RNA sequence: GGAGGCACGCUUAGAGCCUCCAGUUCGGGAGUGUUAAUAGCUAUGCUUUUGGCCGAGCAUGGUGGUUAGUGAAUC
Numbered sequence: 001g002g003a004g005g006c007a008c009g010c011u012u013a014g015a016g017c018c019u020c021c022a023g024u025u026c027g028g029g030a031g032u033g034u035u036a037a038u039a040g041c042u043a044u045g046c047u048u049u050u051g052g053c054c055g056a057g058c059a060u061g062g063u064g065g066u067u068a069g070u071g072a073a074u075c
Stems, first nucleotide, its partner, number of pairs: 001021006034069005040063009
RNA: L13-Bacteroidia ribosomal protein leader